The family of this 100-nucleotide RNA sequence from Merdimmobilis hominis is "Glycine riboswitch aptamer".
The match comes from Rfam's covariance-model search (57 bits).
RNA sequence: GGAUGCGGCUCUGGAGAACGUCCGGAUAUGGGCUGCCGAAGGUGCAACGUGUUGGGGUUCCGACACGAAAUCUCUCAGGCAAAAGGACAGAGUGAAAUAU
Numbered sequence: 001g002g003a004u005g006c007g008g009c010u011c012u013g014g015a016g017a018a019c020g021u022c023c024g025g026a027u028a029u030g031g032g033c034u035g036c037c038g039a040a041g042g043u044g045c046a047a048c049g050u051g052u053u054g055g056g057g058u059u060c061c062g063a064c065a066c067g068a069a070a071u072c073u074c075u076c077a078g079g080c081a082a083a084a085g086g087a088c089a090g091a092g093u094g095a096a097a098u099a100u
Stems, first nucleotide, its partner, number of pairs: 008093006020033004035080003038076002042074001044072001048067008